[Rfam]
RNA sequence: CAGUUAAAACGUCCGUAGUCGAAUAGUAGCCUUUGGCUAGGUGACUUGGUCUUCAUUGGCCUAGUUCGCUUUAGUCAUGGCUCUCACGUUUGGUACUGUCUGGUUGGCUUCGGUUAGUCAGAUAUAAGGCCAAACAAAUUACCAUGAGCAAAUCAGAGUGUUUAAAGCAGGCUAUAAGCCUGAAUGUGUUAGCAUGGAAUAAUGAAAUAAGACGUGGCUCUAUAUUUCGUUGGUUUUAAGAGACCAUUGUAAUGAUGAAUAGGAACGGUUGGGGGGAUUUGUAUUUGGUCGCUAGAGGUGAAAUUCUUGGAUUGACCGAAGACAAACUACUGCGAAGGCAUUUCACCCAGGACGUUUUCAUUGAUCAGGGUCGAAAGUUAGGGGAUCGAAGACGAUUAGAUACCGUCGUAGUCUUAACAGCAAACUAUGCCGACUAGAGGUUGGAUAAGUUCAUUAUGGCUUAUUCAGAAUCUUAGCGAAAGCAAAGUUUUUGGGUUCCGGGGGGAGUAUGGGACGCAAGGCUGAAACUUAAAGGAAU
Number, nucleotide and partner (000 for none) at each position: 001c500002a000003g498004u000005u000006a000007a000008a000009a497010c000011g372012u000013c370014c369015g000016u000017a000018g365019u364020c363021g000022a000023a000024u000025a000026g000027u000028a000029g000030c000031c000032u000033u000034u000035g000036g000037c000038u000039a000040g000041g000042u000043g000044a000045c000046u000047u000048g000049g000050u000051c000052u000053u000054c000055a000056u000057u000058g000059g000060c000061c000062u000063a000064g000065u000066u000067c000068g000069c000070u000071u000072u000073a000074g000075u000076c000077a000078u000079g000080g000081c000082u000083c000084u000085c000086a000087c000088g000089u000090u000091u000092g000093g000094u000095a000096c000097u000098g000099u000100c000101u000102g000103g000104u000105u000106g000107g000108c000109u000110u000111c000112g000113g000114u000115u000116a000117g000118u000119c000120a000121g000122a000123u000124a000125u000126a000127a000128g000129g000130c000131c000132a000133a000134a000135c000136a000137a000138a000139u000140u000141a000142c000143c000144a000145u000146g000147a000148g000149c000150a000151a000152a000153u000154c000155a000156g000157a000158g000159u000160g000161u000162u000163u000164a000165a000166a000167g000168c000169a000170g000171g000172c000173u000174a000175u000176a000177a000178g000179c000180c000181u000182g000183a000184a000185u000186g000187u000188g000189u000190u000191a000192g000193c000194a000195u000196g000197g000198a000199a000200u000201a000202a000203u000204g000205a000206a000207a000208u000209a000210a000211g000212a000213c000214g000215u000216g000217g000218c000219u000220c000221u000222a000223u000224a000225u000226u000227u000228c000229g000230u000231u000232g000233g000234u000235u000236u000237u000238a000239a000240g000241a000242g000243a000244c000245c000246a000247u000248u000249g000250u000251a000252a000253u000254g000255a000256u000257g000258a000259a000260u000261a000262g359263g358264a357265a356266c354267g353268g000269u351270u350271g000272g000273g348274g347275g346276g344277a343278u000279u000280u324281g323282u000283a000284u320285u319286u318287g317288g316289u315290c314291g313292c000293u000294a000295g306296a305297g304298g000299u000300g000301a000302a000303a000304u297305u296306c295307u000308u000309g000310g000311a000312u000313u291314g290315a289316c288317c287318g286319a285320a284321g000322a000323c281324a280325a000326a000327c000328u000329a000330c000331u000332g339333c338334g000335a000336a000337g000338g333339c332340a000341u000342u000343u277344c276345a000346c275347c274348c273349a000350g270351g269352a000353c267354g266355u000356u265357u264358u263359c262360a000361u000362u000363g020364a019365u018366c000367a000368g000369g014370g013371u000372c011373g000374a000375a000376a000377g418378u417379u416380a415381g414382g413383g000384g000385a000386u000387c411388g000389a000390a000391g407392a406393c405394g404395a000396u000397u000398a000399g000400a000401u000402a000403c000404c394405g393406u392407c391408g000409u000410a000411g387412u000413c382414u381415u380416a379417a378418c377419a000420g000421c000422a000423a000424a000425c000426u000427a000428u000429g496430c495431c494432g489433a488434c487435u000436a473437g472438a471439g000440g000441u468442u467443g466444g465445a464446u463447a462448a461449g460450u459451u458452c000453a000454u000455u000456a000457u000458g451459g450460c449461u448462u447463a446464u445465u444466c443467a442468g441469a000470a000471u438472c437473u436474u000475a000476g483477c482478g000479a000480a000481a000482g477483c476484a000485a000486a000487g434488u433489u432490u000491u000492u000493g000494g431495g430496u429497u009498c003499c000500g001501g000502g530503g529504g528505g000506a000507g000508u000509a000510u000511g523512g522513g000514a000515c520516g000517c000518a000519a000520g515521g000522c512523u511524g000525a000526a000527a000528c504529u503530u502531a000532a000533a000534g000535g000536a000537a000538u000
Overview
Shown here is a 538-nucleotide part of an RNA from Mucor saturninus, a member of the family "Eukaryotic small subunit ribosomal RNA". A search with the family's covariance model found it, with a score of 1686 bits. On this family, see Yusupov et al., Science 2001: "Crystal structure of the ribosome at 5.5 A resolution". The base pairs follow the family's consensus structure, which is taken from published work. The family has 90 seed sequences and 75,755 matches in Rfam 15.1. Taxonomically the source falls in Mucor (Eukaryota, Mucoromycotina, Mucoromycetes, Mucoraceae).